The record is a 132-nucleotide sequence from Propithecus coquereli, which matches "U4 spliceosomal RNA" in Rfam. A search with the family's covariance model found it, with a score of 62 bits. The family's consensus secondary structure is taken from published work. The source organism's lineage runs through Eukaryota, Opisthokonta, Vertebrata, Theria and Propithecus. U4 small nuclear RNA (U4 snRNA) is a component of the major U2-dependent spliceosome.

[Rfam]
RNA sequence: GGCUCUGCACAGUGGCAGUCAAUGAGGUUUAUCUGAGGUGCAAUCAUUGCUAAUUGAAAAUUUUCCCAAUACUCUGCCAUGACAACUUUCAAUACAGUCUGCAGUGGCAAUUUUUGACAGUCUCUAAGAAGA
Numbered sequence: 001g002g003c004u005c006u007g008c009a010c011a012g013u014g015g016c017a018g019u020c021a022a023u024g025a026g027g028u029u030u031a032u033c034u035g036a037g038g039u040g041c042a043a044u045c046a047u048u049g050c051u052a053a054u055u056g057a058a059a060a061u062u063u064u065c066c067c068a069a070u071a072c073u074c075u076g077c078c079a080u081g082a083c084a085a086c087u088u089u090c091a092a093u094a095c096a097g098u099c100u101g102c103a104g105u106g107g108c109a110a111u112u113u114u115u116g117a118c119a120g121u122c123u124c125u126a127a128g129a130a131g132a
Base pairs, nucleotide, nucleotide: 012044013043015041016040018039019038020037026034027033076108077107078106080103081102085098086097087096121132122131123130
Dot-bracket structure: ...........((.((.(((.....((.....))..))))).))...............................(((.((...(((........)))...))..)))............(((......)))